[Rfam]
RNA sequence: CUCUUAUCCAGAGAGGUGGAGGGGCUGGCCCGAUGAAACCCGGCAACCGGUGAUGGUAAAUCACUAUGGUGCCAAUUCCUGCAAAGCGAUUUUGCUUUGAGAGAUGAGAA
Numbered sequence: 001c002u003c004u005u006a007u008c009c010a011g012a013g014a015g016g017u018g019g020a021g022g023g024g025c026u027g028g029c030c031c032g033a034u035g036a037a038a039c040c041c042g043g044c045a046a047c048c049g050g051u052g053a054u055g056g057u058a059a060a061u062c063a064c065u066a067u068g069g070u071g072c073c074a075a076u077u078c079c080u081g082c083a084a085a086g087c088g089a090u091u092u093u094g095c096u097u098u099g100a101g102a103g104a105u106g107a108g109a110a
Stems, first nucleotide, its partner, number of pairs: 002109007013041001015040003021031003025081001027079002042073004047069002049065004077102001082099006
Record summary
This 110-nucleotide RNA from Desulfuribacillus stibiiarsenatis belongs to the Rfam family "SAM riboswitch aptamer (S box leader)". It scores 93 bits against the family's covariance model. Lineage of the source: Bacteria > Bacillota > Desulfuribacillia > Desulfuribacillaceae > Desulfuribacillus. Gene Ontology term of the family: regulation of gene expression. Pairs were carried over by alignment from the consensus structure, which is taken from published work.